[Rfam]
RNA sequence: AUGCAGUGAUGAUAACCCUCUUGGUUUCGCUUUGUGCUGAAUUCUGGUGAGGAUGCAUUUCUCUUGGCUGUCUGAGCAU
Numbered sequence: 001a002u003g004c005a006g007u008g009a010u011g012a013u014a015a016c017c018c019u020c021u022u023g024g025u026u027u028c029g030c031u032u033u034g035u036g037c038u039g040a041a042u043u044c045u046g047g048u049g050a051g052g053a054u055g056c057a058u059u060u061c062u063c064u065u066g067g068c069u070g071u072c073u074g075a076g077c078a079u
Base pairs, nucleotide, nucleotide: 001079002078003077004076

This 79-nucleotide RNA from Regulus satrapa belongs to the Rfam family "Small nucleolar RNA SNORD53/SNORD92". By type it is a C/D-box small nucleolar RNA. Pairs were carried over by alignment from the consensus structure. A reference for the family is Kiss-Laszlo et al. (1996), "Site-specific ribose methylation of preribosomal RNA: a novel function for small nucleolar RNAs", Cell.